Notes
Rfam assigns this 76-nucleotide RNA from Ameiurus melas to the family "mir-7563 microRNA precursor family". NCBI's taxonomy places the organism under Eukaryota, Teleostei, Clupeocephala, Ictaluridae, Ameiurus. A search with the family's covariance model found it, with a score of 86 bits. Pairs were carried over by alignment from the consensus structure, which was predicted with RNAalifold.

RNA sequence: ACCGCGUACUUACCUACUAUAUAUUAGCUGAAAUAUGUGUAUCUCGCCUACUAUAUAGUAGGUAAGUACGUGGUUU
Numbered sequence: 001a002c003c004g005c006g007u008a009c010u011u012a013c014c015u016a017c018u019a020u021a022u023a024u025u026a027g028c029u030g031a032a033a034u035a036u037g038u039g040u041a042u043c044u045c046g047c048c049u050a051c052u053a054u055a056u057a058g059u060a061g062g063u064a065a066g067u068a069c070g071u072g073g074u075u076u
Stems, first nucleotide, its partner, number of pairs: 001074015017058007025050003029046003033042003